[Rfam]
PyrR binding site: a 117-nucleotide RNA sequence from Sporomusa sphaeroides.
By type it is a cis-regulatory element.
NCBI's taxonomy places the organism under Bacteria, Bacillati, Sporomusaceae, Sporomusa, Sporomusa sphaeroides.
Nucleotides: 117
Stems, first nucleotide, its partner, number of pairs: 003038006015030005048078005054073005081112014
Number, partner (000 for none) and nucleotide at each position: 001000g002000g003038c004037a005036c006035c007034u008033u009000u010000a011000a012000a013000g014000g015030c016029a017028g018027u019026c020000c021000a022000g023000a024000g025000a026019g027018g028017c029016u030015g031000a032000u033008a034007a035006g036005g037004u038003g039000a040000g041000c042000g043000g044000a045000u046000u047000u048078g049077c050076g051075a052074u053000u054073a055072g056071c057070u058069a059000c060000g061000c062000a063000a064000u065000g066000u067000a068000u069058u070057a071056g072055c073054u074052a075051u076050c077049g078048u079000g080000g081112a082111a083110g084109g085108c086107u087106c088105u089104c090103u091102g092101u093100c094099a095000g096000c097000a098000a099094u100093g101092g102091c103090a104089g105088a106087g107086a108085g109084c110083c111082u112081u113000u114000c115000c116000g117000u